Shown here is an 82-nucleotide sequence from Ricinus communis, a member of the family "Small nucleolar RNA SNORD18".
Its Rfam clan is "SNORD18 clan".
Pairs were carried over by alignment from the consensus structure, which was predicted with PFOLD.
Its family is annotated with RNA processing and nucleolus in the Gene Ontology.
[Rfam]
RNA sequence: GAGAUAUGAUGAGUGAAAUUAAUUGGUCCGUGUUUCUGAUUUCACCAUGACUGAUUACCUAAUUUUAGCACACUCUGAUCUC
Dot-bracket structure: ((((..........................................................................))))